Shown here is a 109-nucleotide RNA sequence from Gossypium anomalum, a member of the family "Plastid-psbA-1 3UTR RNA".
The family is grouped with related families in Rfam's "Plastid-psbA 3UTR RNA clan".
A reference for the family is Richter et al. (2023), "Retrograde signaling in plants: A critical review focusing on the GUN pathway and beyond", Plant Commun.
The family's consensus secondary structure was predicted with LocARNA.
The organism belongs to Gossypium, within Eukaryota.
From the family's description: Plastid psbA-1 is a non-coding RNA (ncRNA) present in plastids. It was identified in inverted repeat sequences in the 3 prime untranslate region (3UTR) of photosystem II quinone-binding protein (psbA).
[Rfam]
RNA sequence: ACUAAUCAUUUAACAAAAUGUCAUUAUGAUUCAACCUAUACAAGUUUUUGAAAAUAAAAGAGCAGUAACCACUUUCUUGUUCUAGCAAGAGUGUUGGUAUUGCUCCUUU
Numbered sequence: 001a002c003u004a005a006u007c008a009u010u011u012a013a014c015a016a017a018a019u020g021u022c023a024u025u026a027u028g029a030u031u032c033a034a035c036c037u038a039u040a041c042a043a044g045u046u047u048u049u050g051a052a053a054a055u056a057a058a059a060g061a062g063c064a065g066u067a068a069c070c071a072c073u074u075u076c077u078u079g080u081u082c083u084a085g086c087a088a089g090a091g092u093g094u095u096g097g098u099a100u101u102g103c104u105c106c107u108u109u
Stems, first nucleotide, its partner, number of pairs: 001010001056109003060105008071094002074091005